The record is a 109-nucleotide RNA sequence from Amycolatopsis alkalitolerans, which matches "Guanidine-I riboswitch aptamer" in Rfam. The base pairs follow the family's consensus structure.
RNA sequence: GCGGGGCGCGUCUAGGGUUCCGCCACUUCGGUGGGUCUGGUCCGAGAGACGCAGGCGGUCCGGCUCGGGAGCCGGAACCGUUCCACGGCGGGAGAAAAGCCCGGGAGGC
Number, nucleotide and partner (000 for none) at each position: 001g000002c000003g000004g000005g000006g000007c000008g052009c051010g050011u049012c048013u000014a000015g043016g042017g000018u000019u000020c040021c039022g037023c034024c033025a032026c031027u000028u000029c000030g000031g026032u025033g024034g023035g000036u000037c022038u000039g021040g020041u000042c016043c015044g000045a000046g000047a000048g012049a011050c010051g009052c008053a000054g082055g081056c080057g079058g078059u077060c000061c075062g000063g000064c000065u000066c000067g000068g000069g000070a000071g000072c000073c000074g000075g061076a000077a059078c058079c057080g056081u055082u054083c000084c104085a000086c107087g000088g000089c000090g102091g101092g100093a000094g000095a000096a000097a000098a000099g000100c092101c091102c090103g000104g084105g000106a000107g086108g000109c000